[Rfam]
RNA: MIR535 microRNA precursor family
Organism: Gossypium mustelinum
RNA sequence: CAAAUCACAUGACAACGAUAGAGAGCACGCUUGUAUGCAUCCAUGACCAUGUAUGAAUGGCUACAAACGUGCUCUCUCUCGUUGUCAAUUGAUA
Numbered sequence: 001c002a003a004a005u006c007a008c009a010u011g012a013c014a015a016c017g018a019u020a021g022a023g024a025g026c027a028c029g030c031u032u033g034u035a036u037g038c039a040u041c042c043a044u045g046a047c048c049a050u051g052u053a054u055g056a057a058u059g060g061c062u063a064c065a066a067a068c069g070u071g072c073u074c075u076c077u078c079u080c081g082u083u084g085u086c087a088a089u090u091g092a093u094a
Stems, first nucleotide, its partner, number of pairs: 010087005016081002020077002023074001025072005031066004